[Rfam]
RNA sequence: UGCCCAGUGCAAUAAUCCUUACCUGUUCCUCCUCUGGGAGGGCAGAGUAGAACAUGAUGAUGAGAAAAAAAUUGAGAGGCUCUGACUGACUCAAGUUGGAGUUGGGCUGGCAAUGACUUGCCACCGACCAGCCUAUAACUGGU
Numbered sequence: 001u002g003c004c005c006a007g008u009g010c011a012a013u014a015a016u017c018c019u020u021a022c023c024u025g026u027u028c029c030u031c032c033u034c035u036g037g038g039a040g041g042g043c044a045g046a047g048u049a050g051a052a053c054a055u056g057a058u059g060a061u062g063a064g065a066a067a068a069a070a071a072u073u074g075a076g077a078g079g080c081u082c083u084g085a086c087u088g089a090c091u092c093a094a095g096u097u098g099g100a101g102u103u104g105g106g107c108u109g110g111c112a113a114u115g116a117c118u119u120g121c122c123a124c125c126g127a128c129c130a131g132c133c134u135a136u137a138a139c140u141g142g143u
Stems, first nucleotide, its partner, number of pairs: 023045003027042006074092002083088001095132003101128005
Dot-bracket structure: ......................(((.((((((....)))))))))............................((.......(....)..))..(((...(((((..................))))).)))...........
RNA: U8 small nucleolar RNA
Organism: Carlito syrichta